Shown here is a 99-nucleotide sequence from Mesorhizobium sp. Root172, a member of the family "Alphaproteobacterial ar15". Rfam links the family to the GO term protein binding. Taxonomically the source falls in Mesorhizobium (Bacteria, Pseudomonadota, Hyphomicrobiales, Phyllobacteriaceae). For this family Rfam cites "A survey of sRNA families in alpha-proteobacteria" (del Val et al., RNA Biol, 2012).
[Rfam]
RNA sequence: AUCCGUUCGGUGUUUUCCUCCCAUUUCGCCGAGCGGUGUUCCCCUCUGAAGGUUAUGACCUUCUUUUUGGCCGGGCCGUUUUCGCGCCCGGCCAUUUUU
Number, nucleotide and partner (000 for none) at each position: 001a037002u000003c036004c035005g034006u000007u032008c031009g030010g029011u028012g027013u000014u000015u000016u000017c000018c000019u000020c000021c000022c000023a000024u000025u000026u000027c012028g011029c010030c009031g008032a007033g000034c005035g004036g003037u001038g000039u000040u000041c000042c000043c000044c000045u000046c000047u000048g063049a062050a061051g060052g059053u058054u000055a000056u000057g000058a053059c052060c051061u050062u049063c048064u000065u000066u000067u000068u094069g093070g092071c091072c090073g089074g087075g000076c000077c086078g085079u084080u000081u000082u000083c000084g079085c078086g077087c074088c000089c073090g072091g071092c070093c069094a068095u000096u000097u000098u000099u000